[Rfam]
RNA sequence: UGCGAUGAGUCGAGAAGAACCAGGUAAUGGAUUAACAUUAUUUUGCUGCGGCAAUUAAUGGUUCAAUUCGAAGCGGGACACGAUUGCCAACGGAAUUUUUGGUGUGCUUAUGUCAUUCAUUGUGGAGUGA
Numbered sequence: 001u002g003c004g005a006u007g008a009g010u011c012g013a014g015a016a017g018a019a020c021c022a023g024g025u026a027a028u029g030g031a032u033u034a035a036c037a038u039u040a041u042u043u044u045g046c047u048g049c050g051g052c053a054a055u056u057a058a059u060g061g062u063u064c065a066a067u068u069c070g071a072a073g074c075g076g077g078a079c080a081c082g083a084u085u086g087c088c089a090a091c092g093g094a095a096u097u098u099u100u101g102g103u104g105u106g107c108u109u110a111u112g113u114c115a116u117u118c119a120u121u122g123u124g125g126a127g128u129g130a
Base pairs, nucleotide, nucleotide: 018063019062020061021060022059023042024041025040026039027038028037043054044053045052046051077108079106080105081104086103087102088101089100090099117130118129119128120127121126
RNA: Enterococcus sRNA 68 (Lacto-3 RNA)